[Rfam]
RNA sequence: AAAACGGCCCUUUUCAGGGCCACCAAAUUUUUCAUACUGAGAAAAU
Numbered sequence: 001a002a003a004a005c006g007g008c009c010c011u012u013u014u015c016a017g018g019g020c021c022a023c024c025a026a027a028u029u030u031u032u033c034a035u036a037c038u039g040a041g042a043a044a045a046u
Stems, first nucleotide, its partner, number of pairs: 006021006

Annotation
The family of this 46-nucleotide RNA from Cotesia congregata is "Histone 3' UTR stem-loop". By type it is a cis-regulatory element. Rfam's curators write: The mRNAs of metazoan histone genes lack a poly-A tail. 3' end processing occurs at a site between a highly conserved stem-loop (modelled by this family) and a purine rich region around 20 nts downstream (the histone downstream element, or HDE). The stem-loop is bound by a 31 kDa stem-loop binding protein (SLBP - also termed the histone hairpin binding protein, or HBP). Together with U7 snRNA binding of the HDE, SLBP binding nucleate s the formation of the processing complex. The source organism's lineage runs through Eukaryota, Ecdysozoa, Neoptera, Apocrita and Cotesia. A search with the family's covariance model found it, with a score of 39 bits.